[Rfam]
RNA: mir-181 microRNA precursor family
Organism: Anolis carolinensis
RNA sequence: UAGCUUCAGUGAACAUUCAACGCUGUCGGUGAGUUUGGAAUCGAGAGCAAACCAUCGACCGUUGACUGUACCUUGAGGUUUA
Numbered sequence: 001u002a003g004c005u006u007c008a009g010u011g012a013a014c015a016u017u018c019a020a021c022g023c024u025g026u027c028g029g030u031g032a033g034u035u036u037g038g039a040a041u042c043g044a045g046a047g048c049a050a051a052c053c054a055u056c057g058a059c060c061g062u063u064g065a066c067u068g069u070a071c072c073u074u075g076a077g078g079u080u081u082a
Base pairs, nucleotide, nucleotide: 001082002081003080004078005077006076007075008074014068015067017065018064019063020062021061022060025059026058027057028056029055030054031053033052034051035050036049